RNA sequence: GUCUCUAAUGAUGAUAAAAGUUUAAUCAACUUUCGUUCUACUGAGAUGAUAUCCAUGAGGAACGCUUAUGGAGACCUGAGCUGAAGAGAC
Numbered sequence: 001g002u003c004u005c006u007a008a009u010g011a012u013g014a015u016a017a018a019a020g021u022u023u024a025a026u027c028a029a030c031u032u033u034c035g036u037u038c039u040a041c042u043g044a045g046a047u048g049a050u051a052u053c054c055a056u057g058a059g060g061a062a063c064g065c066u067u068a069u070g071g072a073g074a075c076c077u078g079a080g081c082u083g084a085a086g087a088g089a090c
Stems, first nucleotide, its partner, number of pairs: 003088004
Dot-bracket structure: ..((((..............................................................................))))..
Rfam assigns this 90-nucleotide sequence from Cephalotus follicularis to the family "Small nucleolar RNA Z159/U59". The match comes from Rfam's covariance-model search (58 bits). The family's consensus secondary structure was predicted with PFOLD. The family's RNA type in Rfam is C/D-box small nucleolar RNA. For this family Rfam cites "The high diversity of snoRNAs in plants: identification and comparative study of 120 snoRNA genes from Oryza sativa" (Chen et al., Nucleic Acids Res, 2003).